[Rfam]
Nucleotides: 064
Stems, first nucleotide, its partner, number of pairs: 001064014016049003020045002023042008
Number, partner (000 for none) and nucleotide at each position: 001064g002063g003062c004061u005060u006059c007058u008057c009056u010055c011054u012053g013052c014051g015000g016049g017048g018047c019000a020045a021044u022000c023042g024041a025040u026039u027038g028037u029036g030035g031000g032000g033000u034000u035030c036029c037028a038027c039026a040025a041024u042023c043000a044021a045020u046000c047018g048017c049016c050000a051014u052013g053012c054011a055010g056009a057008g058007g059006g060005a061004g062003g063002c064001c